The family of this 133-nucleotide RNA from Rhinopithecus roxellana is "Small nucleolar RNA SNORA48".
Its family is annotated with RNA processing and nucleolus in the Gene Ontology.
By type it is an H/ACA-box small nucleolar RNA.
On this family, see Ofengand and Bakin, J Mol Biol 1997: "Mapping to nucleotide resolution of pseudouridine residues in large subunit ribosomal RNAs from representative eukaryotes, prokaryotes, archaebacteria, mitochondria and chloroplasts".
It scores 74 bits against the family's covariance model.
The snoRNA ACA 48 has been identified to guide pseudouridylation of the residue U3797 in the 28S rRNA subunit.
The family has 24 seed sequences and 2,109 matches in Rfam 15.1.
[Rfam]
Nucleotides: 133
Base pairs, nucleotide, nucleotide: 001062002061003060004059006057007056010053011052013050018045019044023038025036026035073128074127075126076125077124078123088121089120090119094117095116096115098113099112100111103108
Number, partner (000 for none) and nucleotide at each position: 001062u002061g003060u004059u005000a006057u007056u008000c009000c010053g011052u012000a013050g014000c015000u016000u017000a018045a019044g020000a021000a022000c023038c024000u025036u026035u027000a028000a029000u030000g031000u032000g033000g034000u035026g036025a037000u038023g039000a040000c041000c042000a043000u044019c045018u046000c047000a048000u049000g050013u051000c052011a053010u054000c055000c056007a057006g058000g059004g060003a061002c062001a063000a064000a065000g066000c067000a068000a069000c070000c071000c072000u073128u074127g075126u076125u077124u078123a079000u080000c081000c082000c083000a084000g085000u086000g087000u088121g089120g090119c091000u092000c093000u094117u095116g096115g097000u098113c099112u100111g101000u102000g103108c104000c105000c106000a107000u108103g109000g110000c111100u112099g113098g114000u115096u116095c117094g118000u119090g120089c121088c122000u123078u124077g125076g126075a127074u128073a129000c130000a131000u132000g133000g